[Rfam]
The family of this 86-nucleotide sequence from Caproiciproducens sp. NJN-50 is "tRNA". The base pairs follow the family's consensus structure, which is taken from published work. The match comes from Rfam's covariance-model search (57 bits). Taxonomically the source falls in Caproiciproducens (Bacteria, Bacillati, Bacillota, Clostridia). The family is grouped with related families in Rfam's "tRNA clan".

RNA sequence: GGAGAGGUGUCCGAGUGGUUUAUGGAGCUAGUCUUGAAAACUAGUGAUCCCGCAAGGGACCAAGAGUUCGAAUCUCUUCCUCUCCG
Dot-bracket structure: (((((((..((((.........)))).(((((.......))))).................(((((.......)))))))))))).